[Rfam]
RNA: ribosomal frameshift site
Organism: Deltaretrovirus priTlym1
RNA sequence: GCCUCCAGGCCUUGCAACACUUGGUCCGGACGGCCCUGGAGGC
Numbered sequence: 001g002c003c004u005c006c007a008g009g010c011c012u013u014g015c016a017a018c019a020c021u022u023g024g025u026c027c028g029g030a031c032g033g034c035c036c037u038g039g040a041g042g043c
Base pairs, nucleotide, nucleotide: 001043002042003041004040005039006038007037008036009035010033011032013030015028